[Rfam]
RNA sequence: GGUAGUAGCAAAUAUUCAAAUGAGAACUUUGAAGACUGAAGUGGAGAAAGGUUCCGUGUGAACAGCAGUUGGACACGGGUGAGCCGACCCUAAGAGACAGGAAAACUCCGCCGAACGCGGCUGGUUCUGUCAGCCCGUCCGUCGAAAGGGAAUCGGGUUAAUAUUCCCGAGCCAGCGCGUGGAUGGUGGGCGGCGACGCGAACGAACCCGGAGACGCCGGCGGGAGCCCUGGGAAGAGUUCUCUUUUCUUCUUAACUGCCUCCUGCCCUGGAAUCGGUUUAGCCGGAGCGAGGGCUACACGGCAGGCAAAGCACCCUAAGUCUUGGGGUGUCCGGCGCGCUCCCGACGGCCCGUGAAAAUCCGGGGGAGCGGUUCGUUCUCACGCCUGGUCGUACUCAUAACCGCAUCAGGUCUCCAAGGUGAACAGCCUCUAGUCGA
Numbered sequence: 001g002g003u004a005g006u007a008g009c010a011a012a013u014a015u016u017c018a019a020a021u022g023a024g025a026a027c028u029u030u031g032a033a034g035a036c037u038g039a040a041g042u043g044g045a046g047a048a049a050g051g052u053u054c055c056g057u058g059u060g061a062a063c064a065g066c067a068g069u070u071g072g073a074c075a076c077g078g079g080u081g082a083g084c085c086g087a088c089c090c091u092a093a094g095a096g097a098c099a100g101g102a103a104a105a106c107u108c109c110g111c112c113g114a115a116c117g118c119g120g121c122u123g124g125u126u127c128u129g130u131c132a133g134c135c136c137g138u139c140c141g142u143c144g145a146a147a148g149g150g151a152a153u154c155g156g157g158u159u160a161a162u163a164u165u166c167c168c169g170a171g172c173c174a175g176c177g178c179g180u181g182g183a184u185g186g187u188g189g190g191c192g193g194c195g196a197c198g199c200g201a202a203c204g205a206a207c208c209c210g211g212a213g214a215c216g217c218c219g220g221c222g223g224g225a226g227c228c229c230u231g232g233g234a235a236g237a238g239u240u241c242u243c244u245u246u247u248c249u250u251c252u253u254a255a256c257u258g259c260c261u262c263c264u265g266c267c268c269u270g271g272a273a274u275c276g277g278u279u280u281a282g283c284c285g286g287a288g289c290g291a292g293g294g295c296u297a298c299a300c301g302g303c304a305g306g307c308a309a310a311g312c313a314c315c316c317u318a319a320g321u322c323u324u325g326g327g328g329u330g331u332c333c334g335g336c337g338c339g340c341u342c343c344c345g346a347c348g349g350c351c352c353g354u355g356a357a358a359a360u361c362c363g364g365g366g367g368a369g370c371g372g373u374u375c376g377u378u379c380u381c382a383c384g385c386c387u388g389g390u391c392g393u394a395c396u397c398a399u400a401a402c403c404g405c406a407u408c409a410g411g412u413c414u415c416c417a418a419g420g421u422g423a424a425c426a427g428c429c430u431c432u433a434g435u436c437g438a
Stems, first nucleotide, its partner, number of pairs: 015033006034436004043416004049396002054078006063071002085392003089149002094143002096112001098110001100109003119135003153170005173388003178384005183378001190199003207365006216350004221345007229335003232252006256305005265295005271289001274286004312330007402411002418430004

The family of this 438-nucleotide part of an RNA from Emiliania huxleyi is "Eukaryotic large subunit ribosomal RNA". The organism belongs to Emiliania huxleyi, within Eukaryota. For this family Rfam cites "Crystal structure of the ribosome at 5.5 A resolution" (Yusupov et al., Science, 2001). Its family is annotated with ribosome and structural constituent of ribosome in the Gene Ontology.